Shown here is a 98-nucleotide RNA sequence from Brenneria rubrifaciens, a member of the family "Glycine riboswitch aptamer". It scores 55 bits against the family's covariance model. Pairs were carried over by alignment from the consensus structure. The source organism's lineage runs through Bacteria, Pseudomonadati, Pseudomonadota, Gammaproteobacteria and Brenneria. Its family is annotated with glycine biosynthetic process in the Gene Ontology. This family represents the bacterial glycine riboswitch.
[Rfam]
RNA sequence: UUCACGCCAACUGGAGAGAGGUUGUUGCGACAACCCACCGAAGGGGCAAGCGGCGAACGCCGCGUAAACUCUCAGGUAAAACGGACAGAGGGAGGGGC
Number, nucleotide and partner (000 for none) at each position: 001u000002u000003c000004a000005c000006g000007c092008c091009a000010a000011c088012u087013g086014g000015a000016g000017a000018g000019a000020g035021g034022u033023u032024g000025u000026u000027g000028c000029g000030a000031c000032a023033a022034c021035c020036c000037a077038c076039c075040g073041a072042a000043g000044g071045g070046g069047c000048a000049a000050g065051c064052g000053g000054c000055g000056a000057a000058c000059g000060c000061c000062g000063c000064g051065u050066a000067a000068a000069c046070u045071c044072u041073c040074a000075g039076g038077u037078a000079a000080a000081a000082c000083g000084g000085a000086c013087a012088g011089a000090g000091g008092g007093a000094g000095g000096g000097g000098c000